[Rfam]
RNA: mir-544 microRNA precursor family
RNA sequence: AUCACCUGGGGAUCUUGUUAAAAUGCAGAUUCUGAUUUAGGAGGUCUGGAAUAGAGCUUAAGAUAAUGCAUUUUUAGUAAGUUCUCAGGUGAUCCUGC
Numbered sequence: 001a002u003c004a005c006c007u008g009g010g011g012a013u014c015u016u017g018u019u020a021a022a023a024u025g026c027a028g029a030u031u032c033u034g035a036u037u038u039a040g041g042a043g044g045u046c047u048g049g050a051a052u053a054g055a056g057c058u059u060a061a062g063a064u065a066a067u068g069c070a071u072u073u074u075u076a077g078u079a080a081g082u083u084c085u086c087a088g089g090u091g092a093u094c095c096u097g098c
Stems, first nucleotide, its partner, number of pairs: 003091003009085003014081007021073003025069003031063003